The record is a 96-nucleotide RNA from Weissella soli, which matches "Bacterial small signal recognition particle RNA" in Rfam. The base pairs follow the family's consensus structure, which is taken from published work. A reference for the family is Rosenblad et al. (2003), "SRPDB: Signal Recognition Particle Database", Nucleic Acids Res. NCBI's taxonomy places the organism under Bacteria, Bacillota, Bacilli, Lactobacillales, Weissella. Rfam's curators write: The signal recognition particle (SRP) is a universally conserved ribonucleoprotein involved in the co-translational targeting of proteins to membranes.
RNA sequence: UAUAUUUUACGAGGCAAGUGUGUGCUUCGAACCGUGUCAGGGUCGGAAGGCAGCAGCACUAAGGAGAUUUCGCAUUGUGCCUUACUUUGAAUAUAA
Number, nucleotide and partner (000 for none) at each position: 001u000002a000003u000004a092005u091006u090007u089008u000009a000010c000011g083012a082013g081014g080015c077016a000017a076018g075019u074020g073021u072022g071023u000024g000025c066026u065027u064028c063029g000030a000031a000032c000033c000034g059035u058036g057037u056038c000039a000040g000041g000042g051043u050044c049045g000046g000047a000048a000049g044050g043051c042052a000053g000054c000055a000056g037057c036058a035059c034060u000061a000062a000063g028064g027065a026066g025067a000068u000069u000070u000071c022072g021073c020074a019075u018076u017077g015078u000079g000080c014081c013082u012083u011084a000085c000086u000087u000088u000089g007090a006091a005092u004093a000094u000095a000096a000